[Rfam]
RNA sequence: AGCUCGACCGGAUCGACAGCGCGGGUCACCACCAAGUAAUCGCGCAGCGCCGUACUGUGCCUGUUUUC
Numbered sequence: 001a002g003c004u005c006g007a008c009c010g011g012a013u014c015g016a017c018a019g020c021g022c023g024g025g026u027c028a029c030c031a032c033c034a035a036g037u038a039a040u041c042g043c044g045c046a047g048c049g050c051c052g053u054a055c056u057g058u059g060c061c062u063g064u065u066u067u068c
Stems, first nucleotide, its partner, number of pairs: 004063001006061001008059001011030001013028001015027003035056004040052001042050003
The family of this 68-nucleotide sequence from Mycobacterium haemophilum is "ASdes TB sRNA". The match comes from Rfam's covariance-model search (68 bits). Rfam 15.1 lists 1,192 matches to the family in 825 species. The family's consensus secondary structure is taken from published work. It is annotated as a small RNA.